[Rfam]
RNA sequence: AUUGCUUCUCAACCUUUUGGCUGAGAUCAGAUGCAAUGUCUGUUCUUGUCAGCUUGAAUCUAGUAUGUCUCUUUUGUGGGGACAAUGAAUUGCAUUCAAUCAGAAUUGUUUUGUGGGGCAAGCAAGGAGAUGGAUUAAGGGCUUUCCCUGUCCACUCUGUAUUCAUUGGAGUUGUGACUGAGAAAGGAUUUUUUUU
Numbered sequence: 001a002u003u004g005c006u007u008c009u010c011a012a013c014c015u016u017u018u019g020g021c022u023g024a025g026a027u028c029a030g031a032u033g034c035a036a037u038g039u040c041u042g043u044u045c046u047u048g049u050c051a052g053c054u055u056g057a058a059u060c061u062a063g064u065a066u067g068u069c070u071c072u073u074u075u076g077u078g079g080g081g082a083c084a085a086u087g088a089a090u091u092g093c094a095u096u097c098a099a100u101c102a103g104a105a106u107u108g109u110u111u112u113g114u115g116g117g118g119c120a121a122g123c124a125a126g127g128a129g130a131u132g133g134a135u136u137a138a139g140g141g142c143u144u145u146c147c148c149u150g151u152c153c154a155c156u157c158u159g160u161a162u163u164c165a166u167u168g169g170a171g172u173u174g175u176g177a178c179u180g181a182g183a184a185a186g187g188a189u190u191u192u193u194u195u196u
Stems, first nucleotide, its partner, number of pairs: 007026003011022001013020002047065003051061002067083006126158004132152002138149004161189004166184001170179003
RNA: U2 spliceosomal RNA
Organism: Scyliorhinus torazame